Overview:
This 140-nucleotide RNA from Salvator merianae belongs to the Rfam family "Small nucleolar RNA SNORA64/SNORA10 family". Taxonomically the source falls in Salvator (Eukaryota, Opisthokonta, Metazoa, Vertebrata). From the family's description: This family belongs to the H/ACA class of small nucleolar RNAs (snoRNAs) which act as guides in the the modification of uridines to pseudouridines. Pairs were carried over by alignment from the consensus structure, which is taken from published work. Rfam classes the family as an H/ACA-box small nucleolar RNA. For this family Rfam cites "Nucleolar localization signals of box H/ACA small nucleolar RNAs" (Narayanan et al., EMBO J, 1999).

[Rfam]
RNA sequence: CCUCUCUCAGCUCUGCUCAGUCACACCUGGCGGCAGUGGUGCGGCUGUCGUUUUCGAGAGAGAAAGCAAAUGGAUUCCUCUUUGCACGGCAGUGAGACCCCUUUGCAUGGUCUCUCUGUUCCUUGUCAGACUCCACAGGC
Numbered sequence: 001c002c003u004c005u006c007u008c009a010g011c012u013c014u015g016c017u018c019a020g021u022c023a024c025a026c027c028u029g030g031c032g033g034c035a036g037u038g039g040u041g042c043g044g045c046u047g048u049c050g051u052u053u054u055c056g057a058g059a060g061a062g063a064a065a066g067c068a069a070a071u072g073g074a075u076u077c078c079u080c081u082u083u084g085c086a087c088g089g090c091a092g093u094g095a096g097a098c099c100c101c102u103u104u105g106c107a108u109g110g111u112c113u114c115u116c117u118g119u120u121c122c123u124u125g126u127c128a129g130a131c132u133c134c135a136c137a138g139g140c
Stems, first nucleotide, its partner, number of pairs: 002066002005063004011058003015054001019046004024041003076130002084121001091117002095113005